The family of this 64-nucleotide RNA sequence from Desulfosporosinus sp. I2 is "RAGATH-18 RNA". Taxonomically the source falls in Desulfosporosinus (Bacteria, Bacillati, Bacillota, Clostridia). Pairs were carried over by alignment from the consensus structure, which is taken from published work.

RNA sequence: CCUGUGGAGUGUUAUAUCAAACGAAAGUAGUCUUCGGAUAAAAUCGGACACAAUGAAUCAGGAA
Numbered sequence: 001c002c003u004g005u006g007g008a009g010u011g012u013u014a015u016a017u018c019a020a021a022c023g024a025a026a027g028u029a030g031u032c033u034u035c036g037g038a039u040a041a042a043a044u045c046g047g048a049c050a051c052a053a054u055g056a057a058u059c060a061g062g063a064a
Base pairs, nucleotide, nucleotide: 001062002061003060004059009051010050011049012048013047022046023045024044030039031038032037